[Rfam]
RNA sequence: UGCUGUCCACAGUGUGUUUGAUAAGCUGACAUGGGACAGGGAUUCUUUUCACUGUUGUGUCAGUUUAUCAAACCCAUACUUGGAUGA
Number, nucleotide and partner (000 for none) at each position: 001u000002g000003c000004u000005g085006u084007c083008c082009a081010c000011a000012g077013u076014g075015u000016g073017u072018u071019u070020g069021a068022u067023a066024a065025g064026c063027u062028g061029a060030c059031a058032u057033g000034g000035g056036a055037c054038a053039g052040g050041g049042a048043u000044u000045c000046u000047u000048u042049u041050c040051a000052c039053u038054g037055u036056u035057g032058u031059g030060u029061c028062a027063g026064u025065u024066u023067a022068u021069c020070a019071a018072a017073c016074c000075c014076a013077u012078a000079c000080u000081u009082g008083g007084a006085u005086g000087a000
A member of the RNA family "mir-599 microRNA precursor family" from Pan troglodytes, 87 nucleotides long. Its family is annotated with RISC complex and miRNA-mediated post-transcriptional gene silencing in the Gene Ontology. A reference for the family is Yue et al. (2008), "Identification of novel homologous microRNA genes in the rhesus macaque genome", BMC Genomics.